[Rfam]
RNA: SAM riboswitch aptamer (S box leader)
Organism: Pengzhenrongella frigida
RNA sequence: ACACCAUCCAGAGCGGCUGAGAGACCUGGCUCGACGACGCCGCAGCAACCCCCCUGCAAAGGGUGUGGGUGCUUCCGCCAGGACCGAUGGAGU
Numbered sequence: 001a002c003a004c005c006a007u008c009c010a011g012a013g014c015g016g017c018u019g020a021g022a023g024a025c026c027u028g029g030c031u032c033g034a035c036g037a038c039g040c041c042g043c044a045g046c047a048a049c050c051c052c053c054c055u056g057c058a059a060a061g062g063g064u065g066u067g068g069g070u071g072c073u074u075c076c077g078c079c080a081g082g083a084c085c086g087a088u089g090g091a092g093u
Stems, first nucleotide, its partner, number of pairs: 001093002004090005013043005021032003026081004044073004049069002051065001053063002077085001